[Rfam]
The record is a 154-nucleotide sequence from Rhizobium giardinii, which matches "speF leader" in Rfam. The source organism's lineage runs through Bacteria, Pseudomonadati, Pseudomonadota, Rhizobiaceae and Rhizobium. For this family Rfam cites "A survey of sRNA families in alpha-proteobacteria" (del Val et al., RNA Biol, 2012). From the family's description: This family is a putative regulatory RNA structure that is found upstream of the speF gene encoding ornithine decarboxylase in Agrobacterium tumefaciens and other alpha-proteobacteria.
RNA sequence: UUCCGGCUUUCCAUCAGCCGGGGUUACUGAAGAGGCACACCUUCAUUGCCGGAAGUGCGGUAGGGUUCUCCCUCCAAUCAAUGGCAGACAAAGCCGAACAAAGCUCUUGGCGGGGCGUUGUUCACCAUCCGCGCAUCGUGCGCAUGUCUGGUCC
Numbered sequence: 001u002u003c004c005g006g007c008u009u010u011c012c013a014u015c016a017g018c019c020g021g022g023g024u025u026a027c028u029g030a031a032g033a034g035g036c037a038c039a040c041c042u043u044c045a046u047u048g049c050c051g052g053a054a055g056u057g058c059g060g061u062a063g064g065g066u067u068c069u070c071c072c073u074c075c076a077a078u079c080a081a082u083g084g085c086a087g088a089c090a091a092a093g094c095c096g097a098a099c100a101a102a103g104c105u106c107u108u109g110g111c112g113g114g115g116c117g118u119u120g121u122u123c124a125c126c127a128u129c130c131g132c133g134c135a136u137c138g139u140g141c142g143c144a145u146g147u148c149u150g151g152u153c154c
Base pairs, nucleotide, nucleotide: 001023002022003021004020005019006018007017008016034050035049036048037047057134058133059132083095084094103116104115105114106113
Rfam links the family to the GO term regulation of gene expression. The match comes from Rfam's covariance-model search (115 bits).